[Rfam]
RNA sequence: AUUGCAAGUUUGAAGCCAUAGCAGAAGUGCUCAGGGUGUGGCUUGUCAGAUUGCAAUGAAUCUUCAAAUUCUGUU
Numbered sequence: 001a002u003u004g005c006a007a008g009u010u011u012g013a014a015g016c017c018a019u020a021g022c023a024g025a026a027g028u029g030c031u032c033a034g035g036g037u038g039u040g041g042c043u044u045g046u047c048a049g050a051u052u053g054c055a056a057u058g059a060a061u062c063u064u065c066a067a068a069u070u071c072u073g074u075u
Stems, first nucleotide, its partner, number of pairs: 014043004020075007027039003048063005
RNA: Mammalian CPEB3 ribozyme
Organism: Alligator sinensis